[Rfam]
Record summary: DUF3800-X RNA: a 73-nucleotide sequence. Rfam's curators put it in the seed alignment.

RNA sequence: UGGUGAGUAAGUCUUGCCCGAAAGGAUGAGGCCUGUGGAGACAGGAUGGGAGCGAGUAGGGCAAGGUUCACCA
Numbered sequence: 001u002g003g004u005g006a007g008u009a010a011g012u013c014u015u016g017c018c019c020g021a022a023a024g025g026a027u028g029a030g031g032c033c034u035g036u037g038g039a040g041a042c043a044g045g046a047u048g049g050g051a052g053c054g055a056g057u058a059g060g061g062c063a064a065g066g067u068u069c070a071c072c073a
Stems, first nucleotide, its partner, number of pairs: 001073006012066008032045005